[Rfam]
RNA: Purine riboswitch aptamer
Organism: Clostridium grantii
RNA sequence: AAAAACAAUUAAAUGUUUGCUUAUAUAAAACCAGCAAUAUGGGCUGGAUGUUUCUACCGAACUACCGUAAAUAGUUGUAGGCUAUAAGUGUUAUGAGCUUAAAG
Dot-bracket structure: .................((((((((...(.(((((.......))))).)........(.(((((.......)))))...)..))))))))..............